RNA sequence: ACACCAUCCAGAGCGACCGAGAGACCUGGCUCUACGACGUCGCAGCAACCCCCCGAACCAUUCGGGAGCGGGUGCUACCGCCGGGAACGAUGGAGG
Numbered sequence: 001a002c003a004c005c006a007u008c009c010a011g012a013g014c015g016a017c018c019g020a021g022a023g024a025c026c027u028g029g030c031u032c033u034a035c036g037a038c039g040u041c042g043c044a045g046c047a048a049c050c051c052c053c054c055g056a057a058c059c060a061u062u063c064g065g066g067a068g069c070g071g072g073u074g075c076u077a078c079c080g081c082c083g084g085g086a087a088c089g090a091u092g093g094a095g096g
Stems, first nucleotide, its partner, number of pairs: 002095001004093005013043005021032003026084004044076004049072002052066004080088001
Dot-bracket structure: .(.(((((....(((((...(((..[[[[)))......)))))((((.((.((((.......))))....))))))...(]]]]...)))))).).

Record summary
SAM riboswitch aptamer (S box leader): a 96-nucleotide sequence from Rhodococcoides kyotonense. Lineage of the source: Bacteria > Bacillati > Actinomycetes > Nocardiaceae > Rhodococcoides. A search with the family's covariance model found it, with a score of 56 bits.